The family of this 95-nucleotide sequence from Cimex lectularius is "mir-210 microRNA precursor family". The base pairs follow the family's consensus structure, which was predicted with WAR. Its family is annotated with miRNA-mediated post-transcriptional gene silencing and RISC complex in the Gene Ontology. The source organism's lineage runs through Eukaryota, Eumetazoa, Pancrustacea, Cimicoidea and Cimex. A reference for the family is Cai et al. (2005), "Kaposi's sarcoma-associated herpesvirus expresses an array of viral microRNAs in latently infected cells", Proc Natl Acad Sci U S A. It scores 62 bits against the family's covariance model.
[Rfam]
RNA sequence: UCAGGGGUUGUGUUAGCUGUUGGACACUGCUCAAGAUUAGGUUGGUUACUCUUGUGCGUGUGACAGCGGCUAUCACAGCUCUUGCUCAGCCCCAU
Numbered sequence: 001u002c003a004g005g006g007g008u009u010g011u012g013u014u015a016g017c018u019g020u021u022g023g024a025c026a027c028u029g030c031u032c033a034a035g036a037u038u039a040g041g042u043u044g045g046u047u048a049c050u051c052u053u054g055u056g057c058g059u060g061u062g063a064c065a066g067c068g069g070c071u072a073u074c075a076c077a078g079c080u081c082u083u084g085c086u087c088a089g090c091c092c093c094a095u
Stems, first nucleotide, its partner, number of pairs: 005081008015071008025060002028058003032054002035051002